The record is a 177-nucleotide sequence from Geotrypetes seraphini, which matches "Small nucleolar RNA SNORA81" in Rfam.

[Rfam]
RNA sequence: UGCUUCCUGGUCAAGCACACUGCUAAAACUACAAAAUCUAGAUUGGUUUCUAGUCUUUGUAGUAAUGCCAGUAGAGUACACCCAGGAAGUAGAGUAAACGCUGUGGUUUGAGAGAUGGGGAUGGACCUCUUUCUUAAUGUCCAGUGUCCUUUGUCUUUGAAACGCAAUGCAACACAU
Numbered sequence: 001u002g003c004u005u006c007c008u009g010g011u012c013a014a015g016c017a018c019a020c021u022g023c024u025a026a027a028a029c030u031a032c033a034a035a036a037u038c039u040a041g042a043u044u045g046g047u048u049u050c051u052a053g054u055c056u057u058u059g060u061a062g063u064a065a066u067g068c069c070a071g072u073a074g075a076g077u078a079c080a081c082c083c084a085g086g087a088a089g090u091a092g093a094g095u096a097a098a099c100g101c102u103g104u105g106g107u108u109u110g111a112g113a114g115a116u117g118g119g120g121a122u123g124g125a126c127c128u129c130u131u132u133c134u135u136a137a138u139g140u141c142c143a144g145u146g147u148c149c150u151u152u153g154u155c156u157u158u159g160a161a162a163c164g165c166a167a168u169g170c171a172a173c174a175c176a177u
Stems, first nucleotide, its partner, number of pairs: 018076001021073004028066001030064002034057002038053004042048001100170002102166004118147001120145001122143004
Rfam 15.1 lists 1,161 matches to the family in 643 species. The organism belongs to Geotrypetes, within Eukaryota. It is annotated as an H/ACA-box small nucleolar RNA. A search with the family's covariance model found it, with a score of 106 bits.